[Rfam]
RNA sequence: GAGACGUGAUGACAAUCUGUCACUUCUGAAAUCCCCCUGAGGACUGUCAGAUCCAACUCUGAUCUCGCUCUAUAA
Numbered sequence: 001g002a003g004a005c006g007u008g009a010u011g012a013c014a015a016u017c018u019g020u021c022a023c024u025u026c027u028g029a030a031a032u033c034c035c036c037c038u039g040a041g042g043a044c045u046g047u048c049a050g051a052u053c054c055a056a057c058u059c060u061g062a063u064c065u066c067g068c069u070c071u072a073u074a075a
Base pairs, nucleotide, nucleotide: 001066002065003064004063
The record is a 75-nucleotide RNA from Hymenochirus boettgeri, which matches "Small nucleolar RNA SNORD19" in Rfam. Pairs were carried over by alignment from the consensus structure. The family is grouped with related families in Rfam's "SNORD19 clan". Rfam links the family to the GO terms nucleolus and RNA processing. Lineage of the source: Eukaryota > Deuterostomia > Vertebrata > Pipoidea > Hymenochirus. Rfam 15.1 lists 1,431 matches to the family in 609 species.